[Rfam]
RNA sequence: GGUUCUCUUUCAUCGUUCACCUCCCCGUGGUGAGAACCGGGCAACACAACAUUUCAGAGUGGCAAAGAAACGAUU
Numbered sequence: 001g002g003u004u005c006u007c008u009u010u011c012a013u014c015g016u017u018c019a020c021c022u023c024c025c026c027g028u029g030g031u032g033a034g035a036a037c038c039g040g041g042c043a044a045c046a047c048a049a050c051a052u053u054u055c056a057g058a059g060u061g062g063c064a065a066a067g068a069a070a071c072g073a074u075u
Stems, first nucleotide, its partner, number of pairs: 001038007019031003045061003
Dot-bracket structure: (((((((...........(((.......))))))))))......(((...........)))..............
Overview
The record is a 75-nucleotide RNA from Trichomalopsis sarcophagae, which matches "HDV ribozyme from F. prausnitzii" in Rfam. On this family, see Webb et al., Science 2009: "Widespread occurrence of self-cleaving ribozymes". Taxonomically the source falls in Trichomalopsis (Eukaryota, Pterygota, Hymenoptera, Apocrita). Gene Ontology term of the family: catalytic activity. The family's consensus secondary structure is taken from published work.